The record is a 45-nucleotide RNA sequence from Salegentibacter echinorum, which matches "PreQ1 (pre queuosine) riboswitch aptamer" in Rfam.
Taxonomically the source falls in Salegentibacter (Bacteria, Pseudomonadati, Bacteroidota, Flavobacteriaceae).
Rfam describes the family as follows. This family is a bacterial riboswitch that binds to the metabolite preQ1, an intermediate in the biosynthesis of the modified nucleoside queuosine from GTP. One example of this riboswitch is located in the leader of the Bacillus subtilis ykvJKLM (queCDEF) operon which encodes four genes necessary for queuosine production.
The pairing is the family consensus, mapped onto this sequence.
On this family, see Schroeder et al., Nucleic Acids Res 2023: "A riboswitch separated from its ribosome-binding site still regulates translation".
Gene Ontology term of the family: queuosine biosynthetic process.

RNA sequence: GGACACGUGGUUCGAAACUCUCCCACAUUAAAAAACUAAGAAAAG
Numbered sequence: 001g002g003a004c005a006c007g008u009g010g011u012u013c014g015a016a017a018c019u020c021u022c023c024c025a026c027a028u029u030a031a032a033a034a035a036c037u038a039a040g041a042a043a044a045g
Stems, first nucleotide, its partner, number of pairs: 007026004016037001